[Rfam]
RNA sequence: CGAGAUGCCCAGGCAAUCGUCGCUUACUUUGGCUUUUGUUGAAGUAGGGGGAGGAAAGUCCGGGCUCCAAUGGGCAGGGUGCCAGCUAACGGCUGGGCGGCGUGAGCCGACGACAAGUGCAGCAGAGAGGAGACCGCCAGUUUCUUCGGGAGCUGGUAAGGGUGAAAGGGUGCGGUAAGAGCGCACCGGGCCACUGGUAACAGUUGGUUGCAAGGUAAACUCCACCCGGAGCAAGACCAAAUAGGUUCCCUACAGGCGUGGCCCGCGCUGGGAACGGGUAGGUCGCUUGAGCCUGUGAGCGAUUGCAGGCCUAGACGAAUGAUUGCCACCUUUACUUUGGUAAAGGAGACAGAACCCGGCUUAUCGGGCAUCUCGAAUC
Numbered sequence: 001c002g003a004g005a006u007g008c009c010c011a012g013g014c015a016a017u018c019g020u021c022g023c024u025u026a027c028u029u030u031g032g033c034u035u036u037u038g039u040u041g042a043a044g045u046a047g048g049g050g051g052a053g054g055a056a057a058g059u060c061c062g063g064g065c066u067c068c069a070a071u072g073g074g075c076a077g078g079g080u081g082c083c084a085g086c087u088a089a090c091g092g093c094u095g096g097g098c099g100g101c102g103u104g105a106g107c108c109g110a111c112g113a114c115a116a117g118u119g120c121a122g123c124a125g126a127g128a129g130g131a132g133a134c135c136g137c138c139a140g141u142u143u144c145u146u147c148g149g150g151a152g153c154u155g156g157u158a159a160g161g162g163u164g165a166a167a168g169g170g171u172g173c174g175g176u177a178a179g180a181g182c183g184c185a186c187c188g189g190g191c192c193a194c195u196g197g198u199a200a201c202a203g204u205u206g207g208u209u210g211c212a213a214g215g216u217a218a219a220c221u222c223c224a225c226c227c228g229g230a231g232c233a234a235g236a237c238c239a240a241a242u243a244g245g246u247u248c249c250c251u252a253c254a255g256g257c258g259u260g261g262c263c264c265g266c267g268c269u270g271g272g273a274a275c276g277g278g279u280a281g282g283u284c285g286c287u288u289g290a291g292c293c294u295g296u297g298a299g300c301g302a303u304u305g306c307a308g309g310c311c312u313a314g315a316c317g318a319a320u321g322a323u324u325g326c327c328a329c330c331u332u333u334a335c336u337u338u339g340g341u342a343a344a345g346g347a348g349a350c351a352g353a354a355c356c357c358g359g360c361u362u363a364u365c366g367g368g369c370a371u372c373u374c375g376a377a378u379c
Stems, first nucleotide, its partner, number of pairs: 001375010011364001012327007020051002023048010056362003060359005065231004072264004077227005082096005097111001098109004112222002117220002119216002134161002136157009169187006188211001189209005194203003235284004245275006255269005291310008
The family of this 379-nucleotide sequence from Bacterioplanoides sp. SCSIO 12839 is "Bacterial RNase P class A".
The family's RNA type in Rfam is ribozyme.